Record summary: The record is a 58-nucleotide RNA sequence, which matches "Plastid-psbA-3 3UTR RNA" in Rfam. Pairs were carried over by alignment from the consensus structure, which was predicted with LocARNA.

[Rfam]
Nucleotides: 058
Stems, first nucleotide, its partner, number of pairs: 002053012015040001018035006
Number, partner (000 for none) and nucleotide at each position: 001000a002053a003052a004051a005050g006049g007048a008047g009046c010045a011044a012043u013042a014000c015040c016000a017000c018035u019034u020033c021032u022031u023030g024000a025000u026000a027000u028000a029000a030023c031022a032021a033020g034019a035018a036000a037000g038000a039000g040015g041000u042013u043012a044011u045010u046009g047008c048007u049006c050005c051004u052003u053002u054000u055000u056000u057000a058000a
It is annotated as a cis-regulatory element. It is one of the family's seed sequences. About the family: Plastid psbA-3 is a non-coding RNA (ncRNA) present in plastids. It was identified in inverted repeat sequences in the 3 prime untranslate region (3UTR) of photosystem II quinone-binding protein (psbA).